Background
Rfam assigns this 162-nucleotide RNA from Lachnoclostridium sp. An14 to the family "Clostridiales-1 RNA". A search with the family's covariance model found it, with a score of 119 bits. The family has 194 seed sequences and 1,172 matches in Rfam 15.1. Lineage of the source: Bacteria > Bacillati > Bacillota > Lachnospiraceae > Lachnoclostridium. Pairs were carried over by alignment from the consensus structure, which is taken from published work.
RNA sequence: UGAAAGCCCGGAUGGCGCCGAUAUAUCUGGGCGCGCUUGCGUGCCCAGAUAUAUCGGCAUCAGACGGGCAAGACGGUAUGAGAAAGUAGGGCGGCAGCCCGGAUUUCGAAUACCGUCGGCAGAUGGCGGGAACGCCGUAGGCGUGAAGCCAUCUGGCUUUCA
Numbered sequence: 001u002g003a004a005a006g007c008c009c010g011g012a013u014g015g016c017g018c019c020g021a022u023a024u025a026u027c028u029g030g031g032c033g034c035g036c037u038u039g040c041g042u043g044c045c046c047a048g049a050u051a052u053a054u055c056g057g058c059a060u061c062a063g064a065c066g067g068g069c070a071a072g073a074c075g076g077u078a079u080g081a082g083a084a085a086g087u088a089g090g091g092c093g094g095c096a097g098c099c100c101g102g103a104u105u106u107c108g109a110a111u112a113c114c115g116u117c118g119g120c121a122g123a124u125g126g127c128g129g130g131a132a133c134g135c136c137g138u139a140g141g142c143g144u145g146a147a148g149c150c151a152u153c154u155g156g157c158u159u160u161c162a
Base pairs, nucleotide, nucleotide: 001162002161003160004159007068008067009066010065014061015060017058018057019056020055021054022053023052024051025050026049027048028047029046031044032043033042034041035040072117073116074115075114076113077112078111079110082107083106084105085104089100090099091098092097121154122153123152124151125150126149127148132144133143134142135141